Rfam assigns this 98-nucleotide RNA from Geomicrobium sp. JCM 19038 to the family "Guanidine-I riboswitch aptamer". This family represents a conserved RNA structure found upstream of the ykkC and yxkD genes in Bacillus subtilis and related genes in other bacteria. Rfam 15.1 lists 1,509 matches to the family in 1,281 species. A reference for the family is Nelson et al. (2017), "Metabolism of Free Guanidine in Bacteria Is Regulated by a Widespread Riboswitch Class", Mol Cell.
[Rfam]
RNA sequence: AUAAACACUUUCUAGGGUUCCGCUCGAAGAGGUCUGGUCCGAGGGAAAGUGCAGCACAAGAUUCGUGCUGUUCACGGAGGGAAAAAAGCCCGGGAGAU
Dot-bracket structure: ......((((((..((...((((((...)))..).)).))....))))))(((((((.......))))))).(.[...(((.......))).)..]..
Numbered sequence: 001a002u003a004a005a006c007a008c009u010u011u012c013u014a015g016g017g018u019u020c021c022g023c024u025c026g027a028a029g030a031g032g033u034c035u036g037g038u039c040c041g042a043g044g045g046a047a048a049g050u051g052c053a054g055c056a057c058a059a060g061a062u063u064c065g066u067g068c069u070g071u072u073c074a075c076g077g078a079g080g081g082a083a084a085a086a087a088g089c090c091c092g093g094g095a096g097a098u
Stems, first nucleotide, its partner, number of pairs: 007050006015040002020037002022034001023031003051071007073093001075096001079091003